[Rfam]
RNA sequence: UCCAGCAGUCAUCAGCUUUCCUGGCUAGUGUGAUGGCUGUGACAGUGUUUUGCUGUAGGAACAGCAAGCACUGUCUUCACUGAGGCUUGGCUCCAGGUGCUGUUUUGGUGUUAGGCCAAGUACCUUUGGGCAGUGUUUUGCACCUCUGAGAGUGAAAUGACUCCUGUAGAGUUGGUCCUAGUCUAGGUGCAAACAAU
Numbered sequence: 001u002c003c004a005g006c007a008g009u010c011a012u013c014a015g016c017u018u019u020c021c022u023g024g025c026u027a028g029u030g031u032g033a034u035g036g037c038u039g040u041g042a043c044a045g046u047g048u049u050u051u052g053c054u055g056u057a058g059g060a061a062c063a064g065c066a067a068g069c070a071c072u073g074u075c076u077u078c079a080c081u082g083a084g085g086c087u088u089g090g091c092u093c094c095a096g097g098u099g100c101u102g103u104u105u106u107g108g109u110g111u112u113a114g115g116c117c118a119a120g121u122a123c124c125u126u127u128g129g130g131c132a133g134u135g136u137u138u139u140g141c142a143c144c145u146c147u148g149a150g151a152g153u154g155a156a157a158u159g160a161c162u163c164c165u166g167u168a169g170a171g172u173u174g175g176u177c178c179u180a181g182u183c184u185a186g187g188u189g190c191a192a193a194c195a196a197u
Stems, first nucleotide, its partner, number of pairs: 001060003005056005011051001015046003019042002021039001023037001025035001068136009082126004087119006095111001098110004138192008154178001156176001158174006
Shown here is a 197-nucleotide RNA from Sapajus apella, a member of the family "Small nucleolar RNA SNORA74". The literature on the family includes a 1998 paper in RNA by Bortolin and Kiss, "Human U19 intron-encoded snoRNA is processed from a long primary transcript that possesses little potential for protein coding". It scores 167 bits against the family's covariance model. The family's consensus secondary structure was predicted with PFOLD. The family's RNA type in Rfam is H/ACA-box small nucleolar RNA. The organism belongs to Sapajus, within Eukaryota. Gene Ontology terms of the family: nucleolus and RNA processing. U19 belongs to the H/ACA class of snoRNAs. snoRNAs bind a number of proteins (including dyskerin, Gar1p and Nop10p in the case of the H/ACA class) to form snoRNP complexes.